RNA: MIR2275 microRNA precursor family
Organism: Setaria italica
RNA sequence: CCAUUUGAAGUGAGGAUUAGAUGGAACUGAACCAUCUCAUGAAAGACAAGGAGCAAGGUUCAGUUUCCUCUAAUAUCUCAUCUCGAAUGG
Numbered sequence: 001c002c003a004u005u006u007g008a009a010g011u012g013a014g015g016a017u018u019a020g021a022u023g024g025a026a027c028u029g030a031a032c033c034a035u036c037u038c039a040u041g042a043a044a045g046a047c048a049a050g051g052a053g054c055a056a057g058g059u060u061c062a063g064u065u066u067c068c069u070c071u072a073a074u075a076u077c078u079c080a081u082c083u084c085g086a087a088u089g090g
Stems, first nucleotide, its partner, number of pairs: 004087005011080004016074006023067008032058002